[Rfam]
RNA: Pistol ribozyme
Organism: Erysipelotrichaceae bacterium 2_2_44A
RNA sequence: AAUCGACUAGGCGAUUUUAAAUAGGUGUUAAGCCUAGUGCGGUAAGAGGUAUAACCCUCUUGCGUCACG
Numbered sequence: 001a002a003u004c005g006a007c008u009a010g011g012c013g014a015u016u017u018u019a020a021a022u023a024g025g026u027g028u029u030a031a032g033c034c035u036a037g038u039g040c041g042g043u044a045a046g047a048g049g050u051a052u053a054a055c056c057c058u059c060u061u062g063c064g065u066c067a068c069g
Stems, first nucleotide, its partner, number of pairs: 001016004006038006025068003032040001042063008